A member of the RNA family "Glycine riboswitch aptamer" from Streptomyces coelicolor, 96 nucleotides long. Rfam's curators put it in the seed alignment. Rfam describes the family as follows. This family represents the bacterial glycine riboswitch. Glycine riboswitches usually consist of two metabolite-binding aptamers domains with similar structures in tandem. The aptamers cooperatively bind glycine to regulate the expression of downstream genes. Taxonomically the source falls in Streptomyces (Bacteria, Bacillati, Actinomycetota, Kitasatosporales).
RNA sequence: UGACCCCGCGCGGGAGAGUCCUCCGGACAUCACCGGAGGCGCCGAAGGAGCAAAUCCUCCCCGGAAUCUCUCAGGCUCACGUACCGCACGGACGAG
Numbered sequence: 001u002g003a004c005c006c007c008g009c010g011c012g013g014g015a016g017a018g019u020c021c022u023c024c025g026g027a028c029a030u031c032a033c034c035g036g037a038g039g040c041g042c043c044g045a046a047g048g049a050g051c052a053a054a055u056c057c058u059c060c061c062c063g064g065a066a067u068c069u070c071u072c073a074g075g076c077u078c079a080c081g082u083a084c085c086g087c088a089c090g091g092a093c094g095a096g
Stems, first nucleotide, its partner, number of pairs: 006091003010087004020039004041076003044072002048070003055063001